[Rfam]
RNA: Small nucleolar RNA psi18S-1377
RNA sequence: CCGUUCUUGUGUUAUUUGCUGGAUAAUCUCCUCAAGACCAGUGAUUGUCAAAAAGAACGAAGACUAAAGGCAGCUAAUCACUCCAUAAUGUUGAGCCGACUAACCAGGGCUACUGCAUUACUAAAUGUAUGCUACAGUA
Numbered sequence: 001c002c003g004u005u006c007u008u009g010u011g012u013u014a015u016u017u018g019c020u021g022g023a024u025a026a027u028c029u030c031c032u033c034a035a036g037a038c039c040a041g042u043g044a045u046u047g048u049c050a051a052a053a054a055g056a057a058c059g060a061a062g063a064c065u066a067a068a069g070g071c072a073g074c075u076a077a078u079c080a081c082u083c084c085a086u087a088a089u090g091u092u093g094a095g096c097c098g099a100c101u102a103a104c105c106a107g108g109g110c111u112a113c114u115g116c117a118u119u120a121c122u123a124a125a126u127g128u129a130u131g132c133u134a135c136a137g138u139a
Stems, first nucleotide, its partner, number of pairs: 002059006010050002016044007087119005094111004